[Rfam]
RNA sequence: GGUAGUAGCAAAUAUUCAAACGAGAACUUUGAAGGCCGAAGUGGAGAAGGGUUCCAUGUGAACAGCAGUUGAACAUGGGUCAGUCGGUCCUAAGGGAUGGGCGAACGCCGUUCGGAAGCGCGGGGCGAUGUCCUACGUCGCCCCCGGCCGAUCGAAAGGGAGUCGGGUUCAAAUCCCCGAACCUGGAGGUGUGGAGAUAGGCGCCGCGAGGCGCCCAGUGCGGUAACGCAAACGAACCCGGAGCAGCUGGCGGGGGCCCCGGGGAGAGUUCUCUUUUCUUUGUGAAGGGCAGGGCGCCCUGGCAUGGGUUCGCCCCGAGAUAGGGGCCCGUGCCCUGGAAAGCGUCGCGGUUCCGGCGGCGUCCGGUGAGCUCUCGCUGGCCCUUGAAAAUCCGGGGGAGAAGGUGUAAGUCUCACGCCAGACCGUACCCAUAUCCGCAGCAGGUCUCCAAGGUGAACAGCCUCUGGCAUGU
Numbered sequence: 001g002g003u004a005g006u007a008g009c010a011a012a013u014a015u016u017c018a019a020a021c022g023a024g025a026a027c028u029u030u031g032a033a034g035g036c037c038g039a040a041g042u043g044g045a046g047a048a049g050g051g052u053u054c055c056a057u058g059u060g061a062a063c064a065g066c067a068g069u070u071g072a073a074c075a076u077g078g079g080u081c082a083g084u085c086g087g088u089c090c091u092a093a094g095g096g097a098u099g100g101g102c103g104a105a106c107g108c109c110g111u112u113c114g115g116a117a118g119c120g121c122g123g124g125g126c127g128a129u130g131u132c133c134u135a136c137g138u139c140g141c142c143c144c145c146g147g148c149c150g151a152u153c154g155a156a157a158g159g160g161a162g163u164c165g166g167g168u169u170c171a172a173a174u175c176c177c178c179g180a181a182c183c184u185g186g187a188g189g190u191g192u193g194g195a196g197a198u199a200g201g202c203g204c205c206g207c208g209a210g211g212c213g214c215c216c217a218g219u220g221c222g223g224u225a226a227c228g229c230a231a232a233c234g235a236a237c238c239c240g241g242a243g244c245a246g247c248u249g250g251c252g253g254g255g256g257c258c259c260c261g262g263g264g265a266g267a268g269u270u271c272u273c274u275u276u277u278c279u280u281u282g283u284g285a286a287g288g289g290c291a292g293g294g295c296g297c298c299c300u301g302g303c304a305u306g307g308g309u310u311c312g313c314c315c316c317g318a319g320a321u322a323g324g325g326g327c328c329c330g331u332g333c334c335c336u337g338g339a340a341a342g343c344g345u346c347g348c349g350g351u352u353c354c355g356g357c358g359g360c361g362u363c364c365g366g367u368g369a370g371c372u373c374u375c376g377c378u379g380g381c382c383c384u385u386g387a388a389a390a391u392c393c394g395g396g397g398g399a400g401a402a403g404g405u406g407u408a409a410g411u412c413u414c415a416c417g418c419c420a421g422a423c424c425g426u427a428c429c430c431a432u433a434u435c436c437g438c439a440g441c442a443g444g445u446c447u448c449c450a451a452g453g454u455g456a457a458c459a460g461c462c463u464c465u466g467g468c469a470u471g472u
Base pairs, nucleotide, nucleotide: 015033016032017031018030019029020028034470035468036467037466043449044448045447046446049429050428054078055077056076057075058074059073063071064070085425086424087423089159090158094153095152096112097111098110100109101108102107119146120145163180164179165178166177167176183421184420185419186418208414209413210412211411219230220229221228222227237396238395239394240393241392242391246381247380248379249378251376252375253374254373255372256371257370259366260365261364263281264280265279266278267277286336287335288334289333290332297325298324299323300322301321303319305317306316307315308314343361344360345359346358347357348356435444436443451463452462453461454460
Shown here is a 472-nucleotide part of an RNA from Oreochromis aureus, a member of the family "Eukaryotic large subunit ribosomal RNA". The source organism's lineage runs through Eukaryota, Eumetazoa, Chordata, African cichlids and Oreochromis. The base pairs follow the family's consensus structure, which is taken from published work.